RNA sequence: ACGGACAGCACCUUGGCGAUAUAGGGGAUCAACGGCAGGUUCAGGAUCAGCAGGAUCAGAUUACCGAUGAACAUCGACAUGAUCACAGCCCAGAAGAUCUGCGGCUCAUCAAUCAUCAGGCGCGGGCC
Number, nucleotide and partner (000 for none) at each position: 001a000002c000003g000004g017005a000006c015007a014008g013009c000010a000011c000012c000013u008014u007015g006016g000017c004018g000019a000020u000021a000022u000023a000024g000025g000026g128027g127028a000029u125030c124031a000032a000033c122034g121035g000036c119037a000038g114039g113040u112041u000042c000043a109044g000045g107046a106047u000048c104049a000050g102051c101052a100053g099054g098055a000056u097057c096058a000059g000060a000061u093062u092063a000064c000065c000066g000067a000068u000069g000070a000071a000072c000073a083074u082075c081076g000077a000078c000079a000080u000081g075082a074083u073084c000085a000086c000087a000088g000089c000090c000091c000092a062093g061094a000095a000096g057097a056098u054099c053100u052101g051102c050103g000104g048105c000106u046107c045108a000109u043110c000111a000112a040113u039114c038115a000116u000117c000118a000119g036120g000121c034122g033123c000124g030125g029126g000127c027128c026
RNA: Ruegeria cis8 sRNA